RNA sequence: GACCUGGGUAGAGGCGCCCGUAUUAUCAGUAUUCAGCUUUAGUCGGCGGACUUUGAGGGCUGAUGAAAGGAGUUCGGGCCGAAGAGCUGAGACUGCAUAUCUCAUCUCUGGGACAUCGGAUAAUAUCCGUUGUACUGUCACUAUCAUUUAGUGUUGAGCUACAAGGUUU
Numbered sequence: 001g002a003c004c005u006g007g008g009u010a011g012a013g014g015c016g017c018c019c020g021u022a023u024u025a026u027c028a029g030u031a032u033u034c035a036g037c038u039u040u041a042g043u044c045g046g047c048g049g050a051c052u053u054u055g056a057g058g059g060c061u062g063a064u065g066a067a068a069g070g071a072g073u074u075c076g077g078g079c080c081g082a083a084g085a086g087c088u089g090a091g092a093c094u095g096c097a098u099a100u101c102u103c104a105u106c107u108c109u110g111g112g113a114c115a116u117c118g119g120a121u122a123a124u125a126u127c128c129g130u131u132g133u134a135c136u137g138u139c140a141c142u143a144u145c146a147u148u149u150a151g152u153g154u155u156g157a158g159c160u161a162c163a164a165g166g167u168u169u
Stems, first nucleotide, its partner, number of pairs: 008162004016079005022073003033063007083109004088104005110136002113133003117129004139153005